[Rfam]
RNA sequence: CCAAUUGCGGCCGCAUCCCAGCUGGACUUAUCCGGUUGGUUUGUUGCCGGCUACAGCGGGGGAGACAUUUAUCACAGCGUGUCUCGUGCCCGACCCCGCUGGUUCAUGUGGUGCCUACUCCUACUUUCCGUAGGGGUAGGCAUCUACCUGCUUCCCAACCGAUGAUUGGGGAGCUAA
Numbered sequence: 001c002c003a004a005u006u007g008c009g010g011c012c013g014c015a016u017c018c019c020a021g022c023u024g025g026a027c028u029u030a031u032c033c034g035g036u037u038g039g040u041u042u043g044u045u046g047c048c049g050g051c052u053a054c055a056g057c058g059g060g061g062g063a064g065a066c067a068u069u070u071a072u073c074a075c076a077g078c079g080u081g082u083c084u085c086g087u088g089c090c091c092g093a094c095c096c097c098g099c100u101g102g103u104u105c106a107u108g109u110g111g112u113g114c115c116u117a118c119u120c121c122u123a124c125u126u127u128c129c130g131u132a133g134g135g136g137u138a139g140g141c142a143u144c145u146a147c148c149u150g151c152u153u154c155c156c157a158a159c160c161g162a163u164g165a166u167u168g169g170g171g172a173g174c175u176a177a
Stems, first nucleotide, its partner, number of pairs: 008049004013044001018039009055100007062085006112142013150174008